[Rfam]
RNA sequence: GGGCAUUCAGAAGUCUUGCUCUCUGGGCUACACGCUGAGAACCGUGUUUCUCUCUCCGCCCAGGGGAAAGUCCCCGGACCCGCGGCAGAGAGUGCCUCCGGCUGAAGCCGGCGUCGACUCGCGCUGCGCCGCUUGUGGAGCCGAGACGCUCCGCGGAGCUGAGCUCGGCGCGCGCUUGUCGACUUUGUCAGAGUUCAUAGUCAUGCAAGUGCGCACAUGGCAGCGUCAACUGAACGGGGCUCAUUCUCGGAAUGCA
Numbered sequence: 001g002g003g004c005a006u007u008c009a010g011a012a013g014u015c016u017u018g019c020u021c022u023c024u025g026g027g028c029u030a031c032a033c034g035c036u037g038a039g040a041a042c043c044g045u046g047u048u049u050c051u052c053u054c055u056c057c058g059c060c061c062a063g064g065g066g067a068a069a070g071u072c073c074c075c076g077g078a079c080c081c082g083c084g085g086c087a088g089a090g091a092g093u094g095c096c097u098c099c100g101g102c103u104g105a106a107g108c109c110g111g112c113g114u115c116g117a118c119u120c121g122c123g124c125u126g127c128g129c130c131g132c133u134u135g136u137g138g139a140g141c142c143g144a145g146a147c148g149c150u151c152c153g154c155g156g157a158g159c160u161g162a163g164c165u166c167g168g169c170g171c172g173c174g175c176u177u178g179u180c181g182a183c184u185u186u187g188u189c190a191g192a193g194u195u196c197a198u199a200g201u202c203a204u205g206c207a208a209g210u211g212c213g214c215a216c217a218u219g220g221c222a223g224c225g226u227c228a229a230c231u232g233a234a235c236g237g238g239g240c241u242c243a244u245u246c247u248c249g250g251a252a253u254g255c256a
Base pairs, nucleotide, nucleotide: 003255004254005253006252007251008250010248011247015209016208017207018206019205022064023063024062025061026060027059028058037052038051039050040049041048069241070240072239073238074237075236084096085095086094087093098111099110100109101108102107114182115181116180120178121177123175124174126171127170128169129168138166139165140164141163148159149158150157151156212225213224214223
A member of the RNA family "RNase MRP" from Anabas testudineus, 256 nucleotides long. For this family Rfam cites "Secondary structure of RNase MRP RNA as predicted by phylogenetic comparison" (Schmitt et al., FASEB J, 1993). About the family: RNase MRP is an enzymatically active ribonucleoprotein with two distinct roles in eukaryotes.